[Rfam]
RNA sequence: AUAAGAUAAGAUUUGUAUGGAGUUGGAACGUUUGCCCACGUUUGCCGCUAGGGGCGUUGUUCCAACUGCAUACAAAAUUGAGUUA
Numbered sequence: 001a002u003a004a005g006a007u008a009a010g011a012u013u014u015g016u017a018u019g020g021a022g023u024u025g026g027a028a029c030g031u032u033u034g035c036c037c038a039c040g041u042u043u044g045c046c047g048c049u050a051g052g053g054g055c056g057u058u059g060u061u062c063c064a065a066c067u068g069c070a071u072a073c074a075a076a077a078u079u080g081a082g083u084u085a
Stems, first nucleotide, its partner, number of pairs: 008079002012076006019069001021067010035053003040048002
This 85-nucleotide sequence from Bombyx mori belongs to the Rfam family "mir-2807 microRNA precursor family". It scores 87 bits against the family's covariance model. Gene Ontology terms of the family: miRNA-mediated post-transcriptional gene silencing and RISC complex. Lineage of the source: Eukaryota > Ecdysozoa > Panorpida > Amphiesmenoptera > Bombyx.